Guanidine-II riboswitch aptamer (mini-ykkC): a 48-nucleotide RNA sequence from Brevibacterium linens. It scores 39 bits against the family's covariance model. Lineage of the source: Bacteria > Bacillati > Actinomycetota > Actinomycetes > Brevibacterium. Rfam links the family to the GO term regulation of gene expression. The family has 72 seed sequences and 1,589 matches in Rfam 15.1. The family's consensus secondary structure is taken from published work.
[Rfam]
RNA sequence: CAACCGGGACGACCCGGCUGAGCGAGAAACACGAUGAGGACGGCCUCA
Dot-bracket structure: ((.(((((....))))).))..............(((((....)))))